[Rfam]
RNA sequence: AAUCUGAGCAAGCGGUGAAUAGGUGACUAUUCAUGCAGCCCGGCUACUAAACGUAGCAGCAGAGUGUUAAGGCACAUCUGUGAGACAG
Number, nucleotide and partner (000 for none) at each position: 001a000002a000003u000004c088005u087006g086007a000008g000009c000010a000011a000012g039013c038014g036015g034016u033017g032018a031019a030020u029021a028022g000023g000024u000025g000026a000027c000028u021029a020030u019031u018032c017033a016034u015035g000036c014037a000038g013039c012040c000041c000042g000043g057044c056045u055046a054047c053048u000049a000050a000051a000052c000053g047054u046055a045056g044057c043058a000059g081060c080061a079062g078063a077064g075065u074066g073067u072068u000069a000070a000071g000072g067073c066074a065075c064076a000077u063078c062079u061080g060081u059082g000083a000084g000085a000086c006087a005088g004
This 88-nucleotide RNA belongs to the Rfam family "NiCo-AnGGAG riboswitch aptamer".
Gene Ontology term of the family: metal ion binding.
Nico riboswitches are selective metalloregulatory riboswitches that recognice Ni2+ and Co2+ metals. NiCo-AnGGAG is a variant of Nico riboswitch, with a change in position 87, from G to A.
For this family Rfam cites "Bioinformatic analysis of riboswitch structures uncovers variant classes with altered ligand specificity" (Weinberg et al., Proc Natl Acad Sci U S A, 2017).